[Rfam]
RNA sequence: UGGACCAUUGAUGAUGACUGAUGGCAUAUGAGUCGAAUAUGAUGAAUACUGUGUGUCUGAAACUCUGAGGUCCAG
Numbered sequence: 001u002g003g004a005c006c007a008u009u010g011a012u013g014a015u016g017a018c019u020g021a022u023g024g025c026a027u028a029u030g031a032g033u034c035g036a037a038u039a040u041g042a043u044g045a046a047u048a049c050u051g052u053g054u055g056u057c058u059g060a061a062a063c064u065c066u067g068a069g070g071u072c073c074a075g
Stems, first nucleotide, its partner, number of pairs: 002073005
Description
Small nucleolar RNA SNORD113/SNORD114 family: a 75-nucleotide RNA from Lipotes vexillifer. Lineage of the source: Eukaryota > Teleostomi > Theria > Eutheria > Lipotes. The literature on the family includes a 2002 paper in Hum Mol Genet by Cavaille et al., "Identification of tandemly-repeated C/D snoRNA genes at the imprinted human 14q32 domain reminiscent of those at the Prader-Willi/Angelman syndrome region". From the family's description: The imprinted human domain at 14q32 contains two clusters of tandemly repeated small nucleolar RNAs named 14q(I) and 14q(II) snoRNAs. These two clusters are named SNORD113 and SNORD114 respectively in the HGNC approved gene symbol nomenclature. The snoRNAs found in both clusters are clearly related and are represented here by a single family. The family's consensus secondary structure is taken from published work.